[Rfam]
RNA: EFASI RNA
Organism: Xenorhabdus szentirmaii
RNA sequence: ACGUUACGAUAAUGAGGCGUUCAUCCUGAUUGAAUCAGGUACUGAACGGGGAGCAUGUAUCGCUGUGCUGAGCACGUCGCGAGCUCCUGCAAAAACUCAACACCACCUUCGCUCUGCUACACAUUAUCUGACG
Numbered sequence: 001a002c003g004u005u006a007c008g009a010u011a012a013u014g015a016g017g018c019g020u021u022c023a024u025c026c027u028g029a030u031u032g033a034a035u036c037a038g039g040u041a042c043u044g045a046a047c048g049g050g051g052a053g054c055a056u057g058u059a060u061c062g063c064u065g066u067g068c069u070g071a072g073c074a075c076g077u078c079g080c081g082a083g084c085u086c087c088u089g090c091a092a093a094a095a096c097u098c099a100a101c102a103c104c105a106c107c108u109u110c111g112c113u114c115u116g117c118u119a120c121a122c123a124u125u126a127u128c129u130g131a132c133g
Base pairs, nucleotide, nucleotide: 002133003132004131005130008128009127010126011125012124013123014122018048019047020046021045022044023043049088050087051086052085060082061081062080063079064076065075066074067073068072